[Rfam]
RNA sequence: AAGUGCUUUGGAAUGACACGAUCACUCCCGUUGAGUGGGCACCCAAGUAGCCAUCGGGAAUGUCGUGUCCGCCCAGUGCU
Numbered sequence: 001a002a003g004u005g006c007u008u009u010g011g012a013a014u015g016a017c018a019c020g021a022u023c024a025c026u027c028c029c030g031u032u033g034a035g036u037g038g039g040c041a042c043c044c045a046a047g048u049a050g051c052c053a054u055c056g057g058g059a060a061u062g063u064c065g066u067g068u069c070c071g072c073c074c075a076g077u078g079c080u
Stems, first nucleotide, its partner, number of pairs: 005079002008076004015069008026059005032053002035051002
mir-425 microRNA precursor family: an 80-nucleotide sequence from Sus scrofa. The family's consensus secondary structure was predicted with RNAalifold. Rfam 15.1 lists 486 matches to the family in 482 species.